Annotation
The family of this 358-nucleotide RNA sequence from Candidatus Cytomitobacter primus is "Alphaproteobacteria transfer-messenger RNA".
RNA sequence: CCAAUUGUUUUUUUACUAUGAAUUUGUACAAUAUAUAUGUUACAGCUUGUCUGUAAAUAUAGUGAUAAACAUUAAACUGACUAAAUUUAGCGGACUCGGGGGCGGAGCCCGACAUCUCCACCAAUGGGGAUGAAUUAGGAUCGACGUAGGUUGAAAGGUUUGAUUUUUACUCGGUGUUGUUUGCCGUAAUAGAACUAAAAAGAUAAAUGCAAAUAAUAACGCAUUUGCACCUGCAAAUGGUAAUAGCUUACAAGCUGUUGCUGUAGGUGCAUAAUUUAUAAUAUCUAUAUAAUUUAAAAUUAUAUUUUUAUUAUAAAUGAGCGGCUUGUAGGGUGCCGGGCAACAGAAACCUUACGCU
Numbered sequence: 001c002c003a004a005u006u007g008u009u010u011u012u013u014u015a016c017u018a019u020g021a022a023u024u025u026g027u028a029c030a031a032u033a034u035a036u037a038u039g040u041u042a043c044a045g046c047u048u049g050u051c052u053g054u055a056a057a058u059a060u061a062g063u064g065a066u067a068a069a070c071a072u073u074a075a076a077c078u079g080a081c082u083a084a085a086u087u088u089a090g091c092g093g094a095c096u097c098g099g100g101g102g103c104g105g106a107g108c109c110c111g112a113c114a115u116c117u118c119c120a121c122c123a124a125u126g127g128g129g130a131u132g133a134a135u136u137a138g139g140a141u142c143g144a145c146g147u148a149g150g151u152u153g154a155a156a157g158g159u160u161u162g163a164u165u166u167u168u169a170c171u172c173g174g175u176g177u178u179g180u181u182u183g184c185c186g187u188a189a190u191a192g193a194a195c196u197a198a199a200a201a202g203a204u205a206a207a208u209g210c211a212a213a214u215a216a217u218a219a220c221g222c223a224u225u226u227g228c229a230c231c232u233g234c235a236a237a238u239g240g241u242a243a244u245a246g247c248u249u250a251c252a253a254g255c256u257g258u259u260g261c262u263g264u265a266g267g268u269g270c271a272u273a274a275u276u277u278a279u280a281a282u283a284u285c286u287a288u289a290u291a292a293u294u295u296a297a298a299a300u301u302a303u304a305u306u307u308u309u310a311u312u313a314u315a316a317a318u319g320a321g322c323g324g325c326u327u328g329u330a331g332g333g334u335g336c337c338g339g340g341c342a343a344c345a346g347a348a349a350c351c352u353u354a355c356g357c358u
Stems, first nucleotide, its partner, number of pairs: 040056006061171005071164007086150003090147003096112005113132007172186004177197001179195001181194001182192001322338004330352003
It is annotated as a non-coding RNA gene.